[Rfam]
RNA sequence: CGCUUUUGCUGAAUUAGUGAUCGGCUUAAGCACAAUUUAAAUUAAUUUUGGAGUUAUUAUGUCACUAAGUACUCAAGAAAAAGUAGAAAUCGUUGCUAAAUUUGCACGUGUUGAA
Numbered sequence: 001c002g003c004u005u006u007u008g009c010u011g012a013a014u015u016a017g018u019g020a021u022c023g024g025c026u027u028a029a030g031c032a033c034a035a036u037u038u039a040a041a042u043u044a045a046u047u048u049u050g051g052a053g054u055u056a057u058u059a060u061g062u063c064a065c066u067a068a069g070u071a072c073u074c075a076a077g078a079a080a081a082a083g084u085a086g087a088a089a090u091c092g093u094u095g096c097u098a099a100a101u102u103u104g105c106a107c108g109u110g111u112u113g114a115a
Stems, first nucleotide, its partner, number of pairs: 008025005047069005053063001
Dot-bracket structure: .......(((((........))))).....................(((((.(.........).)))))..............................................